Shown here is an 84-nucleotide RNA sequence from Sphenodon punctatus, a member of the family "Epstein-Barr virus stable intronic sequence RNA 2".
Rfam classes the family as a non-coding RNA gene.
The source organism's lineage runs through Eukaryota, Sarcopterygii, Amniota, Sauropsida and Sphenodon.
Rfam 15.1 lists 171 matches to the family in 47 species.
A search with the family's covariance model found it, with a score of 42 bits.
The base pairs follow the family's consensus structure.

RNA sequence: GGCAUGGGGAAAGGGAGUGGGAGUGCCAUGGUCCCUUCACAGGGGGUCAGGGCACUCCCACUCUCUUCCUCCCCACCCCAUGCC
Numbered sequence: 001g002g003c004a005u006g007g008g009g010a011a012a013g014g015g016a017g018u019g020g021g022a023g024u025g026c027c028a029u030g031g032u033c034c035c036u037u038c039a040c041a042g043g044g045g046g047u048c049a050g051g052g053c054a055c056u057c058c059c060a061c062u063c064u065c066u067u068c069c070u071c072c073c074c075a076c077c078c079c080a081u082g083c084c
Base pairs, nucleotide, nucleotide: 001084002083003082004081005080006079007078008077009076012066013065017061018060019059020058021057022056023055024054025053026052027051029049030048031047033046034045035044036043037042